[Rfam]
RNA sequence: CUCCAAGGAGCGUUGCAGCACCGGCCGCCGGCCGGUGUCAGGCUUGGAUUUCUUUUGCAACGACGCUCACCCGCG
Numbered sequence: 001c002u003c004c005a006a007g008g009a010g011c012g013u014u015g016c017a018g019c020a021c022c023g024g025c026c027g028c029c030g031g032c033c034g035g036u037g038u039c040a041g042g043c044u045u046g047g048a049u050u051u052c053u054u055u056u057g058c059a060a061c062g063a064c065g066c067u068c069a070c071c072c073g074c075g
Base pairs, nucleotide, nucleotide: 002048003047004046005045006044019037020036021035022034023033024032
RNA: SAH (S-adenosyl-L-homocysteine) riboswitch aptamer
Organism: Caldimonas caldifontis